RNA sequence: UUAAUUUGCAGGUAGGGCAACCUAUACUGCGUACUCGUGGAAACCGAAUUAGCGUUUAAGCGACUUGUAAAGUUGCCGGACAUGAGGAAGGGCUAUCGCAUUUGUGGUAGUCCUUUUUAUUUUGAG
Numbered sequence: 001u002u003a004a005u006u007u008g009c010a011g012g013u014a015g016g017g018c019a020a021c022c023u024a025u026a027c028u029g030c031g032u033a034c035u036c037g038u039g040g041a042a043a044c045c046g047a048a049u050u051a052g053c054g055u056u057u058a059a060g061c062g063a064c065u066u067g068u069a070a071a072g073u074u075g076c077c078g079g080a081c082a083u084g085a086g087g088a089a090g091g092g093c094u095a096u097c098g099c100a101u102u103u104g105u106g107g108u109a110g111u112c113c114u115u116u117u118u119a120u121u122u123u124g125a126g
Base pairs, nucleotide, nucleotide: 007031008030009029010028011027012025013024014023015022016021034086035085036084037083038082039081044079045078046077047056048055049054060076061075062074063073064072065071087116088115089114090113091112092111093110094109095108096107097106098105099104
This 126-nucleotide sequence belongs to the Rfam family "DUF3800-I RNA". About the family: Actinobacteria, Firmicutes, Fusobacteria, Proteobacteria (1 example), Tenericutes (2 examples).